[Rfam]
RNA sequence: AAGGCUAUAGCUUAAUAGGUAAAGCAAGCUGCUCAUAAUAGCUCAGAUGAGUGUUCGAGUCAUUCUGGCCUUA
Numbered sequence: 001a002a003g004g005c006u007a008u009a010g011c012u013u014a015a016u017a018g019g020u021a022a023a024g025c026a027a028g029c030u031g032c033u034c035a036u037a038a039u040a041g042c043u044c045a046g047a048u049g050a051g052u053g054u055u056c057g058a059g060u061c062a063u064u065c066u067g068g069c070c071u072u073a
Base pairs, nucleotide, nucleotide: 001072002071003070004069005068006067007066010025011024012023013022027043028042029041030040031039049065050064051063052062053061

Rfam assigns this 73-nucleotide sequence from Plenodomus lingam to the family "tRNA". It scores 56 bits against the family's covariance model. Pairs were carried over by alignment from the consensus structure, which is taken from published work.